[Rfam]
RNA sequence: CGCCAUCCCCAUCACAACGGAUCGUCCGGCACGUUCCUGCCGGUGAAGGAGAUGCAC
Numbered sequence: 001c002g003c004c005a006u007c008c009c010c011a012u013c014a015c016a017a018c019g020g021a022u023c024g025u026c027c028g029g030c031a032c033g034u035u036c037c038u039g040c041c042g043g044u045g046a047a048g049g050a051g052a053u054g055c056a057c
Base pairs, nucleotide, nucleotide: 009049010048012046013045014044026043027042028041029040030039031038
RNA: msiK RNA